[Rfam]
RNA sequence: GGGGGAGUGACGAAAGAAAUCGUUCGGAUUCCCAAUGAUUUAAACCGUGAUAUUUAAACCAGCUACUUCUGACCCCU
Numbered sequence: 001g002g003g004g005g006a007g008u009g010a011c012g013a014a015a016g017a018a019a020u021c022g023u024u025c026g027g028a029u030u031c032c033c034a035a036u037g038a039u040u041u042a043a044a045c046c047g048u049g050a051u052a053u054u055u056a057a058a059c060c061a062g063c064u065a066c067u068u069c070u071g072a073c074c075c076c077u
Base pairs, nucleotide, nucleotide: 001077002076003075004074005073
This 77-nucleotide sequence from Kingdonia uniflora belongs to the Rfam family "Small nucleolar RNA R12". The family's RNA type in Rfam is C/D-box small nucleolar RNA. Its family is annotated with nucleolus and RNA processing in the Gene Ontology. The organism belongs to Kingdonia, within Eukaryota. The family's consensus secondary structure was predicted with PFOLD. snoR12 is a C/D box small nucleolar RNA, which acts as a methylation guide for 25S ribosomal RNA in plants. snoR12 has been alternatively named snoZ44 in Arabidopsis and snoZ131 in rice.